Shown here is a 138-nucleotide RNA from Orycteropus afer, a member of the family "Small nucleolar RNA SNORA75". A search with the family's covariance model found it, with a score of 103 bits. About the family: U23 belongs to the H/ACA class of snoRNAs. snoRNAs bind a number of proteins (including dyskerin, Gar1p and Nop10p in the case of the H/ACA class) to form snoRNP complexes. This class are thought to guide the sites of modification of uridines to pseudouridines by forming direct base pairing interactions with substrate RNAs. Targets include ribosomal and spliceosomal RNAs as well as the Trypanosoma spliced leader RNA (SL RNA) as possibly other, still unknown cellular RNAs. U23 can direct the pseudouridylation of U97 in human 18S rRNA (Bachellerie JP, Ganot, P unpublished data). Rfam 15.1 lists 414 matches to the family in 310 species. Rfam links the family to the GO terms RNA processing and nucleolus.

[Rfam]
RNA sequence: GUCUUCUCAAUGAGCUCCUUUCUGUCAACUGGUGGCAGUUUAUGGAUUCGCACGAGAAGAAGAGCCAAUUCACAGAGCUAGCCCUGUCAGCUUACCUUCUGUCUGCAGAGGUGCAGCCCCGCUGCUCGUGAGACACUU
Numbered sequence: 001g002u003c004u005u006c007u008c009a010a011u012g013a014g015c016u017c018c019u020u021u022c023u024g025u026c027a028a029c030u031g032g033u034g035g036c037a038g039u040u041u042a043u044g045g046a047u048u049c050g051c052a053c054g055a056g057a058a059g060a061a062g063a064g065c066c067a068a069u070u071c072a073c074a075g076a077g078c079u080a081g082c083c084c085u086g087u088c089a090g091c092u093u094a095c096c097u098u099c100u101g102u103c104u105g106c107a108g109a110g111g112u113g114c115a116g117c118c119c120c121g122c123u124g125c126u127c128g129u130g131a132g133a134c135a136c137u138u
Stems, first nucleotide, its partner, number of pairs: 003059006014051002016046003022038005070131004075126001096111006